[Rfam]
RNA: SAM riboswitch aptamer (S box leader)
RNA sequence: UUCUUAUCAAGAGAGACGGAGGGACUUGGCCCUAUGAUGUCUCAGCAACCAGUCUGUCAAGACACGGUGCUAAUUCCAAAAGGUAUCCGCCUUAAAGAUAAGAA
Numbered sequence: 001u002u003c004u005u006a007u008c009a010a011g012a013g014a015g016a017c018g019g020a021g022g023g024a025c026u027u028g029g030c031c032c033u034a035u036g037a038u039g040u041c042u043c044a045g046c047a048a049c050c051a052g053u054c055u056g057u058c059a060a061g062a063c064a065c066g067g068u069g070c071u072a073a074u075u076c077c078a079a080a081a082g083g084u085a086u087c088c089g090c091c092u093u094a095a096a097g098a099u100a101a102g103a104a
Stems, first nucleotide, its partner, number of pairs: 001104008013043005021032003026079004044071004049067002052063004075096001080093005